Notes: Shown here is a 133-nucleotide sequence from Castor canadensis, a member of the family "Small nucleolar RNA SNORA51". By type it is an H/ACA-box small nucleolar RNA. The organism belongs to Castor, within Eukaryota. ACA51 is a member of the H/ACA class of snoRNA that guide the sites of modification of uridines to pseudouridines.
[Rfam]
RNA sequence: GGCCUCCUGGUACUUAUAACAGGCUGUGUUCUUACCCUGUCUGUAUGGAAGGAGGAGGCAAAAUAAACCUACCCCAUACACACCUCAGCCCCAGGCCUGGAGCCUGGACCUUAUUUUGAAUGCAGACACAUAG
Numbered sequence: 001g002g003c004c005u006c007c008u009g010g011u012a013c014u015u016a017u018a019a020c021a022g023g024c025u026g027u028g029u030u031c032u033u034a035c036c037c038u039g040u041c042u043g044u045a046u047g048g049a050a051g052g053a054g055g056a057g058g059c060a061a062a063a064u065a066a067a068c069c070u071a072c073c074c075c076a077u078a079c080a081c082a083c084c085u086c087a088g089c090c091c092c093a094g095g096c097c098u099g100g101a102g103c104c105u106g107g108a109c110c111u112u113a114u115u116u117u118g119a120a121u122g123c124a125g126a127c128a129c130a131u132a133g
Stems, first nucleotide, its partner, number of pairs: 002059007020043003026037001028035002072125001075122003088109001091107006